[Rfam]
Record summary
The record is a 304-nucleotide RNA from Mionectes macconnelli, which matches "7SK RNA" in Rfam. A reference for the family is Blencowe (2002), "Transcription: surprising role for an elusive small nuclear RNA", Curr Biol. Its Rfam clan is "7SK clan". Taxonomically the source falls in Mionectes (Eukaryota, Deuterostomia, Euteleostomi, Aves).
Nucleotides: 304
Base pairs, nucleotide, nucleotide: 001098002097003096006091007090008089009088010087011086013083014082018080019079025076026075027074028073029072030071031070032069033068035064036063037060038059041057042056043055044054045052107153109149110148111147114127115126117125118124133140134139180248181247184242185241187239188238189237191235192234199230200229201228202227206224207223208222209221271304272303275299277297278296279295280294281293282292283291284290
Number, partner (000 for none) and nucleotide at each position: 001098g002097g003096a004000u005000g006091u007090g008089a009088g010087g011086g012000c013083g014082a015000u016000c017000u018080g019079g020000c021000u022000g023000c024000a025076a026075c027074a028073u029072c030071u031070g032069u033068c034000a035064c036063c037060c038059c039000c040000g041057g042056g043055u044054u045052g046000a047000c048000u049000g050000g051000g052045c053000u054044g055043a056042u057041c058000u059038g060037g061000c062000u063036g064035g065000c066000c067000a068033g069032g070031c071030g072029g073028g074027u075026g076025u077000c078000c079019c080018c081000u082014u083013c084000c085000u086011c087010c088009c089008u090007c091006a092000a093000c094000g095000c096003u097002c098001c099000a100000c101000g102000u103000g104000u105000g106000u107153c108000c109149c110148u111147c112000c113000c114127g115126a116000a117125g118124c119000u120000g121000g122000a123000a124118g125117c126115u127114c128000a129000a130000a131000g132000a133140g134139g135000a136000c137000c138000u139134c140133c141000c142000c143000a144000c145000c146000a147111g148110a149109g150000a151000c152000a153107g154000u155000c156000a157000c158000a159000g160000c161000a162000c163000a164000u165000c166000g167000u168000c169000a170000c171000g172000g173000g174000c175000a176000c177000a178000g179000g180248g181247c182000a183000g184242c185241u186000c187239c188238c189237c190000u191235g192234c193000u194000a195000g196000a197000a198000c199230c200229u201228c202227c203000a204000a205000a206224c207223a208222a209221g210000c211000u212000c213000a214000a215000g216000g217000u218000c219000c220000a221209c222208u223207u224206g225000c226000a227202g228201g229200a230199g231000a232000a233000c234192g235191c236000u237189g238188g239187g240000u241185a242184g243000u244000g245000a246000a247181g248180c249000u250000u251000c252000c253000a254000a255000g256000a257000c258000u259000g260000c261000a262000g263000a264000c265000a266000c267000a268000u269000c270000u271304a272303a273000g274000u275299g276000a277297g278296g279295c280294g281293c282292u283291g284290c285000a286000c287000g288000g289000g290284g291283c292282a293281g294280u295279g296278c297277c298000c299275u300000u301000g302000g303272u304271u